RNA sequence: GAGAGUAGGCGUUGGCGGUUGCAGACCAGUUAGCUUAACUGAUUUGAGGAAAGUCCGGACUCCCGAAAGACCAGACUUGCUGGAUAACGUCCAGUGCGAGCGAUCGUGAGGAUAGUGCCACAGAAAAAUACCGCCAAGAUUGGGGACUGGGGACUAGGGGUUGGGGACUGGGGAAGAAACUUCCCAAUCCCUAAUCCCCCAUACCCAAUACCCAACUCUUGGUAAGGGUGCAAAGGUGCGGUAAGAGCGCACCAGCAGUAUCGAGAGGUACUGGCUCGGUAAACCCCGGUUGGGAGCAAGGCCGAAGAACUAUGGUUGGUCUUUUACCAGUUCCGCUAUCAGAGAGCCGCUAGAGGCGUUUGGUAACAAACGUCCCAGAUAGAUAAUCGCCCUCGUGUAAAGCAAUUUACACAGAGAACAGAACCCGGCUUACCACCAACUCUCUCCU
Number, nucleotide and partner (000 for none) at each position: 001g444002a443003g442004a441005g440006u439007a000008g437009g436010c000011g433012u000013u000014g391015g390016c389017g388018g387019u386020u385021g000022c046023a045024g044025a043026c000027c041028a040029g039030u038031u000032a000033g000034c000035u000036u000037a000038a030039c029040u028041g027042a000043u025044u024045u023046g022047a000048g000049g000050a000051a431052a430053g429054u000055c428056c427057g426058g425059a000060c296061u295062c294063c293064c000065g000066a000067a000068a000069g325070a324071c000072c000073a000074g291075a290076c289077u000078u288079g287080c094081u093082g092083g091084a090085u000086a000087a000088c000089g000090u084091c083092c082093a081094g080095u109096g107097c106098g105099a104100g000101c000102g000103a000104u099105c098106g097107u096108g000109a095110g286111g285112a000113u000114a000115g284116u283117g280118c279119c278120a000121c000122a000123g000124a000125a000126a000127a000128a000129u000130a000131c227132c226133g223134c222135c221136a220137a219138g218139a217140u000141u215142g000143g000144g000145g000146a000147c000148u000149g000150g000151g000152g000153a000154c000155u000156a000157g000158g000159g000160g000161u000162u000163g000164g000165g000166g000167a000168c000169u000170g000171g000172g000173g000174a000175a000176g000177a000178a000179a000180c000181u000182u000183c000184c000185c000186a000187a000188u000189c000190c000191c000192u000193a000194a000195u000196c000197c000198c000199c000200c000201a000202u000203a000204c000205c000206c000207a000208a000209u000210a000211c000212c000213c000214a000215a141216c000217u139218c138219u137220u136221g135222g134223u133224a000225a000226g132227g131228g000229u000230g000231c000232a000233a000234a000235g253236g252237u251238g250239c249240g248241g000242u000243a000244a000245g000246a000247g000248c240249g239250c238251a237252c236253c235254a000255g275256c273257a272258g271259u270260a269261u268262c267263g000264a000265g000266a000267g262268g261269u260270a259271c258272u257273g256274g000275c255276u000277c000278g119279g118280u117281a000282a000283a116284c115285c111286c110287c079288g078289g076290u075291u074292g000293g063294g062295a061296g060297c000298a000299a000300g348301g347302c346303c000304g000305a000306a000307g000308a000309a000310c000311u338312a337313u335314g334315g333316u330317u329318g328319g327320u326321c000322u000323u000324u070325u069326a320327c319328c318329a317330g316331u000332u000333c315334c314335g313336c000337u312338a311339u000340c000341a000342g000343a000344g000345a000346g302347c301348c300349g000350c000351u000352a000353g000354a000355g374356g373357c372358g371359u370360u369361u368362g367363g000364u000365a000366a000367c362368a361369a360370a359371c358372g357373u356374c355375c000376c000377a000378g000379a000380u000381a000382g000383a000384u000385a020386a019387u018388c017389g016390c015391c014392c000393u000394c000395g000396u000397g000398u000399a000400a000401a000402g000403c000404a000405a000406u000407u000408u000409a000410c000411a000412c000413a000414g000415a000416g000417a000418a000419c000420a000421g000422a000423a000424c000425c058426c057427g056428g055429c053430u052431u051432a000433c011434c000435a000436c009437c008438a000439a006440c005441u004442c003443u002444c001445u000446c000447c000448u000